RNA: Small nucleolar RNA Z39
Organism: Ornithorhynchus anatinus
RNA sequence: UUGCAAGUGAUGUAACAAUUUCAGUAUGCACAAAACAGAUACUGUAAACACUUUCUGAUAUA
Number, nucleotide and partner (000 for none) at each position: 001u000002u062003g061004c000005a059006a000007g000008u000009g000010a000011u000012g054013u000014a052015a000016c000017a000018a000019u000020u000021u000022c044023a043024g042025u041026a040027u039028g000029c000030a000031c000032a000033a000034a000035a000036c000037a000038g000039a027040u026041a025042c024043u023044g022045u000046a000047a000048a000049c000050a000051c000052u014053u000054u012055c000056u000057g000058a000059u005060a000061u003062a002